Rfam assigns this 589-nucleotide part of an RNA from Fusobacterium gonidiaformans to the family "Bacterial small subunit ribosomal RNA". Rfam 15.1 lists 42,628 matches to the family in 10,626 species. It is one of the family's seed sequences.
RNA sequence: UGACGGGGACCCGCACAAGCGGUGGAGCAUGUGGUUUAAUUCGACGCAACGCGAGGAACCUUACCAGCGUUUGACAUCCUACAAAGAGUGCAGAGAUGCGCUUGUGCUUCUUCGGAAGAAUGUAGUGACAGGUGGUGCAUGGCUGUCGUCAGCUCGUGUCGUGAGAUGUUGGGUUAAGUCCCGCAACGAGCGCAACCCCUAUCGUAUGUUACCAGCCUUUAGUUGGGGACUCAUGCGAUACUGCCUGCGACGAGCAGGAGGAAGGUGGGGAUGACGUCAAGUCAUCAUGCCCCUUAUACGCUGGGCUACACACGUGCUACAAUGGGUAGUACAGAGAGCGGCGAACCCGCGAGGGGGAGCAAAUCUCAGAAAACUAUUCUUAGUUCGGAUUGUACUCUGCAACUCGAGUACAUGAAGUUGGAAUCGCUAGUAAUCGCAAAUCAGCAAUGUUGCGGUGAAUACGUUCUCGGGUCUUGUACACACCGCCCGUCACACCACGAGAGUUGGUUGCACCUGAAGUAGCAGGCCUAACCGUAAGGAAGGAUGCUCCGAGGGUGUGGUUAGCGAUUGGGGUGAAGUCGUAACAAGG
Number, nucleotide and partner (000 for none) at each position: 001u480002g479003a477004c476005g475006g000007g474008g473009a472010c471011c470012c469013g468014c000015a464016c463017a000018a000019g427020c426021g425022g424023u423024g320025g000026a318027g317028c316029a315030u314031g313032u312033g311034g309035u308036u000037u000038a000039a000040u055041u054042c053043g052044a000045c000046g000047c000048a000049a000050c000051g000052c043053g042054a041055g040056g000057a000058a000059c000060c000061u000062u000063a000064c304065c303066a302067g301068c300069g299070u298071u000072u000073g000074a000075c000076a000077u128078c127079c125080u124081a123082c122083a121084a000085a000086g103087a102088g101089u100090g099091c098092a097093g000094a000095g000096a000097u092098g091099c090100g089101c088102u087103u086104g000105u120106g000107c118108u117109u116110c115111u000112u000113c000114g000115g110116a109117a108118g107119a000120a105121u083122g082123u081124a080125g079126u000127g078128a077129c000130a000131g293132g292133u000134g291135g290136u289137g288138c000139a000140u287141g286142g282143c281144u280145g278146u000147c276148g275149u000150c000151a000152g191153c190154u189155c188156g187157u186158g167159u166160c165161g000162u000163g000164a000165g160166a159167u158168g000169u000170u183171g182172g181173g180174u000175u000176a000177a000178g000179u000180c173181c172182c171183g170184c000185a000186a157187c156188g155189a154190g153191c152192g000193c000194a000195a000196c000197c270198c269199c268200u267201a000202u238203c237204g236205u235206a234207u233208g232209u000210u000211a000212c227213c226214a000215g000216c225217c000218u000219u000220u000221a000222g000223u000224u000225g216226g213227g212228g000229a000230c000231u000232c208233a207234u206235g205236c204237g203238a202239u000240a000241c261242u260243g000244c258245c257246u256247g255248c254249g000250a000251c000252g000253a000254g248255c247256a246257g245258g244259a000260g242261g241262a000263a000264g000265g000266u000267g200268g199269g198270g197271a000272u000273g000274a000275c148276g147277u000278c145279a000280a144281g143282u142283c000284a000285u000286c141287a140288u137289g136290c135291c134292c132293c131294u000295u000296a000297u000298a070299c069300g068301c067302u066303g065304g064305g000306c000307u000308a035309c034310a000311c033312a032313c031314g030315u029316g028317c027318u026319a000320c024321a000322a000323u000324g379325g378326g377327u376328a375329g374330u373331a000332c000333a000334g000335a000336g367337a366338g365339c000340g000341g360342c359343g000344a000345a000346c355347c354348c353349g000350c000351g000352a000353g348354g347355g346356g000357g000358a000359g342360c341361a000362a000363a000364u000365c338366u337367c336368a000369g000370a000371a000372a000373a330374c329375u328376a327377u326378u325379c324380u000381u000382a000383g000384u000385u000386c417387g000388g000389a000390u000391u412392g411393u410394a409395c408396u407397c406398u000399g000400c000401a000402a000403c000404u000405c000406g397407a396408g395409u394410a393411c392412a391413u000414g000415a000416a000417g386418u000419u000420g000421g000422a000423a023424u022425c021426g020427c019428u000429a000430g000431u000432a000433a456434u455435c454436g453437c452438a451439a450440a000441u000442c000443a000444g000445c000446a000447a000448u000449g000450u439451u438452g437453c436454g435455g434456u433457g000458a000459a000460u000461a000462c000463g016464u015465u000466c000467u000468c013469g012470g011471g010472u009473c008474u007475u005476g004477u003478a000479c002480a001481c000482a000483c588484c000485g585486c000487c000488c581489g580490u000491c000492a000493c575494a574495c573496c572497a000498c570499g569500a568501g000502a000503g565504u564505u563506g562507g561508u560509u559510g558511c557512a556513c555514c554515u000516g000517a000518a000519g550520u000521a548522g547523c546524a545525g000526g000527c543528c542529u541530a000531a000532c539533c538534g000535u000536a000537a000538g533539g532540a000541a529542g528543g527544a000545u524546g523547c522548u521549c000550c519551g000552a000553g000554g514555g513556u512557g511558u510559g509560g508561u507562u506563a505564g504565c503566g000567a000568u500569u499570g498571g000572g496573g495574u494575g493576a000577a000578g000579u000580c489581g488582u000583a000584a000585c485586a000587a000588g483589g000